The record is a 56-nucleotide RNA sequence from Sphingomonas sp. FARSPH, which matches "nhaA-I RNA" in Rfam. It scores 44 bits against the family's covariance model. Taxonomically the source falls in Sphingomonas (Bacteria, Pseudomonadati, Alphaproteobacteria, Sphingomonadaceae).
RNA sequence: GGGUGCGAGCUUCGGUUCGAAGGCGCAGGGUCAUCACGUUGGUCGGGCCGCCAGCG
Numbered sequence: 001g002g003g004u005g006c007g008a009g010c011u012u013c014g015g016u017u018c019g020a021a022g023g024c025g026c027a028g029g030g031u032c033a034u035c036a037c038g039u040u041g042g043u044c045g046g047g048c049c050g051c052c053a054g055c056g
Stems, first nucleotide, its partner, number of pairs: 005026003010022003037056007
It is annotated as a riboswitch.
Acidobacteria, Alphaproteobacteria, Betaproteobacteria and Gammaproteobacteria, Verrucomicrobia, cand. division NC10.